[Rfam]
Annotation
Shown here is an 83-nucleotide RNA sequence from Prevotella heparinolytica, a member of the family "Bacteroides-1 RNA". The family's RNA type in Rfam is small RNA.
RNA sequence: GAGACAAUCCGCCUGAAGCUAUCGAUGUAUAUGUGAAUAUCCAUAAGGUAGUACGUAUGUCUCCCCGACAUAGACAGGUGCGA
Numbered sequence: 001g002a003g004a005c006a007a008u009c010c011g012c013c014u015g016a017a018g019c020u021a022u023c024g025a026u027g028u029a030u031a032u033g034u035g036a037a038u039a040u041c042c043a044u045a046a047g048g049u050a051g052u053a054c055g056u057a058u059g060u061c062u063c064c065c066c067g068a069c070a071u072a073g074a075c076a077g078g079u080g081c082g083a
Stems, first nucleotide, its partner, number of pairs: 018052003023047001025044003029040004056072006